[Rfam]
RNA sequence: UACCGUCGCAUAAGCGGUCAUCUUAUGCACCUCCCUGUUGGACUGCCCGGGCUUGAAGCCCGGGCGUUUUU
Numbered sequence: 001u002a003c004c005g006u007c008g009c010a011u012a013a014g015c016g017g018u019c020a021u022c023u024u025a026u027g028c029a030c031c032u033c034c035c036u037g038u039u040g041g042a043c044u045g046c047c048c049g050g051g052c053u054u055g056a057a058g059c060c061c062g063g064g065c066g067u068u069u070u071u
Stems, first nucleotide, its partner, number of pairs: 008028007045065008

The family of this 71-nucleotide sequence from Thalassovita gelatinovora is "Singlet oxygen resistance RNA X". Its family is annotated with response to photooxidative stress in the Gene Ontology. It is annotated as a small RNA. For this family Rfam cites "Regulation of a polyamine transporter by the conserved 3' UTR-derived sRNA SorX confers resistance to singlet oxygen and organic hydroperoxides in Rhodobacter sphaeroides" (Peng et al., RNA Biol, 2016). Lineage of the source: Bacteria > Pseudomonadota > Alphaproteobacteria > Roseobacteraceae > Thalassovita.